[Rfam]
RNA sequence: GCCGGCGGACGGCCGCCGGCGUUCAUCGCUCCCCUGGGGACGGCCCCG
Numbered sequence: 001g002c003c004g005g006c007g008g009a010c011g012g013c014c015g016c017c018g019g020c021g022u023u024c025a026u027c028g029c030u031c032c033c034c035u036g037g038g039g040a041c042g043g044c045c046c047c048g
Stems, first nucleotide, its partner, number of pairs: 001020008035048005
A member of the RNA family "Guanidine-II riboswitch aptamer (mini-ykkC)" from Caulobacter mirabilis, 48 nucleotides long. Pairs were carried over by alignment from the consensus structure, which is taken from published work.